[Rfam]
RNA sequence: GGUUCUGUCUGAUAUGUUUGAUAUUAGGUUGUUUUAUUGGGAAUCAACUAAAUAUCAGACAUAUUGCUACAGCACC
Numbered sequence: 001g002g003u004u005c006u007g008u009c010u011g012a013u014a015u016g017u018u019u020g021a022u023a024u025u026a027g028g029u030u031g032u033u034u035u036a037u038u039g040g041g042a043a044u045c046a047a048c049u050a051a052a053u054a055u056c057a058g059a060c061a062u063a064u065u066g067c068u069a070c071a072g073c074a075c076c
Stems, first nucleotide, its partner, number of pairs: 005072004011065015027049005
Description:
The record is a 76-nucleotide RNA sequence from Eleutherodactylus coqui, which matches "mir-190 microRNA precursor family" in Rfam. Its family is annotated with miRNA-mediated post-transcriptional gene silencing and RISC complex in the Gene Ontology. Rfam 15.1 lists 1,667 matches to the family in 854 species. The literature on the family includes a 2006 paper in Nucleic Acids Res by Kloosterman et al., "Cloning and expression of new microRNAs from zebrafish". Lineage of the source: Eukaryota > Tetrapoda > Amphibia > Neobatrachia > Eleutherodactylus.